About this RNA:
The record is a 176-nucleotide sequence from Spirochaeta lutea, which matches "FMN riboswitch aptamer (RFN element)" in Rfam.
RNA sequence: UACGAUUUUCAGGGCAGGGUGCGCCUCCUUCGUUGAAGGGGCAAUUCCCGACCGGCGGUGAUAGUCCGCGACCUUGGCGCCUUCCACGGCGGAUGCACAGCAUUCGACUGGCAAGACCAAACUGAACCGGUGGAAUUCCGGUACCGACGGUAUAGUCCGGAUGGGAGAAAAUCUGU
Number, nucleotide and partner (000 for none) at each position: 001u000002a000003c000004g173005a172006u171007u170008u169009u168010c167011a000012g000013g000014g000015c000016a000017g049018g048019g047020u000021g000022c000023g000024c000025c000026u000027c000028c000029u000030u000031c000032g000033u000034u000035g000036a000037a000038g000039g000040g000041g000042c000043a000044a000045u000046u000047c019048c018049c017050g000051a156052c155053c146054g145055g069056c068057g067058g066059u000060g000061a000062u000063a000064g144065u143066c058067c057068g056069c055070g000071a000072c000073c000074u120075u119076g118077g117078c000079g000080c000081c000082u000083u000084c000085c000086a000087c000088g000089g000090c000091g000092g000093a000094u000095g000096c000097a000098c000099a000100g000101c000102a000103u000104u000105c000106g000107a000108c000109u000110g000111g000112c000113a000114a000115g000116a000117c077118c076119a075120a074121a000122c000123u000124g000125a000126a142127c141128c140129g139130g138131u000132g000133g000134a000135a000136u000137u000138c130139c129140g128141g127142u126143a065144c064145c054146g053147a000148c159149g158150g157151u000152a000153u000154a000155g052156u051157c150158c149159g148160g000161a000162u000163g000164g000165g000166a000167g010168a009169a008170a007171a006172u005173c004174u000175g000176u000
About this RNA:
The match comes from Rfam's covariance-model search (91 bits). Lineage of the source: Bacteria > Spirochaetia > Spirochaetales > Spirochaetaceae > Spirochaeta.